RNA: mir-133 microRNA precursor family
RNA sequence: GUGCUCUAGCUGGUUGAAUUCGGGUCAAAUAUGCGGUCUGUUGGAAAAUUUGGUCCCCUUCAACCAGCUGUAGUCG
Numbered sequence: 001g002u003g004c005u006c007u008a009g010c011u012g013g014u015u016g017a018a019u020u021c022g023g024g025u026c027a028a029a030u031a032u033g034c035g036g037u038c039u040g041u042u043g044g045a046a047a048a049u050u051u052g053g054u055c056c057c058c059u060u061c062a063a064c065c066a067g068c069u070g071u072a073g074u075c076g
Base pairs, nucleotide, nucleotide: 003074004073005072008069009068010067011066012065013064014063015062016061017060018059022055023054025053026052027051028050029049030048